[Rfam]
RNA sequence: CCCUUGGAGUGUUACACCAAAUGAAAGUAGUCCUUGGACAAAAUCAGACACGAUGAAUAGGGAA
Dot-bracket structure: ((((....(((((........(((.....(((....)))....)))))))).......))))..

Shown here is a 64-nucleotide RNA sequence, a member of the family "RAGATH-18 RNA". Rfam's curators put it in the seed alignment. The family's consensus secondary structure is taken from published work. From the family's description: Actinobacteria, Firmicutes, Fusobacteria, Thermotogae (1 example).